Rfam assigns this 103-nucleotide sequence to the family "RAGATH-20 RNA". The family's consensus secondary structure is taken from published work. The sequence is in the family's curated seed alignment.
[Rfam]
RNA sequence: AGUGUGAAUUAACACACAUGCAAACAAGUGUAAGGCGUAGCAAUACGACCGAUGCCGGAGCAGGACAGUAUGACAACGUGCCACUGAUCAUGUGCCUAAGAUC
Number, nucleotide and partner (000 for none) at each position: 001a000002g017003u016004g015005u014006g013007a000008a000009u000010u000011a000012a000013c006014a005015c004016a003017c002018a000019u062020g061021c060022a000023a000024a000025c000026a000027a000028g000029u000030g000031u000032a000033a000034g050035g049036c047037g046038u045039a044040g000041c000042a000043a000044u039045a038046c037047g036048a000049c035050c034051g000052a000053u000054g000055c000056c000057g000058g000059a000060g021061c020062a019063g000064g000065a000066c000067a000068g000069u000070a000071u000072g000073a000074c000075a000076a000077c000078g000079u000080g000081c000082c000083a000084c000085u000086g000087a000088u000089c000090a000091u000092g000093u000094g000095c000096c000097u000098a000099a000100g000101a000102u000103c000